Rfam assigns this 226-nucleotide RNA sequence from Allorhodopirellula solitaria to the family "Group II catalytic intron D1-D4-6". Rfam links the family to the GO term Group II intron splicing. Rfam describes the family as follows. Group II introns are found in rRNA, tRNA and mRNA of organelles in fungi, plants and protists, and also in mRNA in bacteria. It scores 134 bits against the family's covariance model. The family has 174 seed sequences and 1,617 matches in Rfam 15.1.
[Rfam]
RNA sequence: AAAGUUUCUUACGAAGAAGGUUUAGCCAACUACUUCGGCCUCCGGCGGAGGUGCGAUGAAGGUAACAACGUCGUGCUGAGCGUCCGUGCAGGGGGAAGCGUAGGCCAGCUAAUGAGCUCCGAAAUCAGAGAUCUCAGGUGCCGACCUUGUCAUGGCAAGGGGAAGGCAACAUUGAACACGUCGAUAUCGGCGAGGCGUCGUUCGGACCUGGCGGAGUCGUUGAACC
Numbered sequence: 001a002a003a004g005u006u007u008c009u010u011a012c013g014a015a016g017a018a019g020g021u022u023u024a025g026c027c028a029a030c031u032a033c034u035u036c037g038g039c040c041u042c043c044g045g046c047g048g049a050g051g052u053g054c055g056a057u058g059a060a061g062g063u064a065a066c067a068a069c070g071u072c073g074u075g076c077u078g079a080g081c082g083u084c085c086g087u088g089c090a091g092g093g094g095g096a097a098g099c100g101u102a103g104g105c106c107a108g109c110u111a112a113u114g115a116g117c118u119c120c121g122a123a124a125u126c127a128g129a130g131a132u133c134u135c136a137g138g139u140g141c142c143g144a145c146c147u148u149g150u151c152a153u154g155g156c157a158a159g160g161g162g163a164a165g166g167c168a169a170c171a172u173u174g175a176a177c178a179c180g181u182c183g184a185u186a187u188c189g190g191c192g193a194g195g196c197g198u199c200g201u202u203c204g205g206a207c208c209u210g211g212c213g214g215a216g217u218c219g220u221u222g223a224a225c226c
Stems, first nucleotide, its partner, number of pairs: 012037005019031004023193001025191002039094004045089002047085002050081001051077001052075007061066001114218001116217006134211006140167003145161004172205006178198005